[Rfam]
RNA sequence: CCACACGGAUGCCGUGAGGCCUCUGUCCGCUCAAGGCCCUGGUGCACCUUCCCCGGCACCAGGUUCCCGGCGGGCGGACAGGGACCUGACGGCAUCCGUGUAACCAA
Numbered sequence: 001c002c003a004c005a006c007g008g009a010u011g012c013c014g015u016g017a018g019g020c021c022u023c024u025g026u027c028c029g030c031u032c033a034a035g036g037c038c039c040u041g042g043u044g045c046a047c048c049u050u051c052c053c054c055g056g057c058a059c060c061a062g063g064u065u066c067c068c069g070g071c072g073g074g075c076g077g078a079c080a081g082g083g084a085c086c087u088g089a090c091g092g093c094a095u096c097c098g099u100g101u102a103a104c105c106a107a
Stems, first nucleotide, its partner, number of pairs: 010094006018086002021083012035066002038063008
Rfam assigns this 107-nucleotide sequence from Amycolatopsis xylanica to the family "mraW RNA". The family's RNA type in Rfam is cis-regulatory element.